[Rfam]
RNA sequence: UAGAUGGUGCUCACGUCACUCUCCCUAGGAUCUUUACCCUUUCCUAGAUAAAUGUCGUGGGCACUAAAAA
Numbered sequence: 001u002a003g004a005u006g007g008u009g010c011u012c013a014c015g016u017c018a019c020u021c022u023c024c025c026u027a028g029g030a031u032c033u034u035u036a037c038c039c040u041u042u043c044c045u046a047g048a049u050a051a052a053u054g055u056c057g058u059g060g061g062c063a064c065u066a067a068a069a070a
Stems, first nucleotide, its partner, number of pairs: 006065010017054002026046005
RNA: potC RNA